The record is a 157-nucleotide RNA from Aneurinibacillus migulanus, which matches "c-di-AMP riboswitch aptamer (ydaO/yuaA leader)" in Rfam. Lineage of the source: Bacteria > Bacilli > Caryophanales > Paenibacillaceae > Aneurinibacillus.
[Rfam]
Nucleotides: 157
Stems, first nucleotide, its partner, number of pairs: 011141004018030003031136006041072002073121003081096004099115004
Number, partner (000 for none) and nucleotide at each position: 001000c002000c003000a004000u005000u006000u007000g008000g009000a010000u011141c012140g013139c014138u015000g016000a017000g018030u019029c020028c021000u022000g023000a024000u025000a026000a027000g028020g029019g030018a031136g032135c033134g034133g035132g036131g037000g038000a039000a040000c041072c042071a043000a044000a045000c046000g047000c048000a049000g050000g051000u052000a053000u054000g055000u056000u057000u058000u059000c060000c061000a062000u063000a064000u065000a066000c067000u068000g069000c070000a071042u072041g073121g074120g075119g076000u077000g078000a079000a080000u081096c082095c083094c084093g085000g086000g087000a088000u089000g090000a091000c092000c093084c094083g095082g096081g097000u098000a099115g100114g101113g102112c103000g104000a105000c106000u107000c108000u109000u110000a111000c112102g113101c114100c115099c116000g117000a118000a119075u120074c121073c122000g123000u124000c125000a126000g127000c128000u129000a130000a131036c132035c133034u134033c135032g136031u137000a138014a139013g140012c141011g142000u143000g144000u145000a146000g147000g148000g149000g150000g151000a152000g153000g154000a155000c156000u157000g